[Rfam]
RNA sequence: GUCAGGUACCCCAUGCCUGAAAGGGCAGGGGCUUGCGUUAGCAAGCCUGGACCUGUUCAGAUUCAGCCAUGAAUCCUUUGUUUUGGCAGAGGGUUAUCGGGCUACGAUAGUCGGGAAGCGUUGAAGUCCUACCUACGGGUGCGUGCCAGCCUGUAGCUCUAGAAUCUCUGGGUUAAACAGCAAAACGGGGUCUAUGCCGUGCUCAGAGAACAGUACCGCCCACUAUCAUUAUCGAGGCAACCAUUAC
Dot-bracket structure: (.(((((..(((....(.......)..).))((((......)))).....))))).)..(((..((((...............................))))..((((((.((............((....((((((((..[[[[[.)))))))).....)).(((((((((...((.(((.(........).))).))))))))))).........)).))))))...)))..]]].]]......
RNA: HNH endonuclease-associated RNA and ORF (HEARO) RNA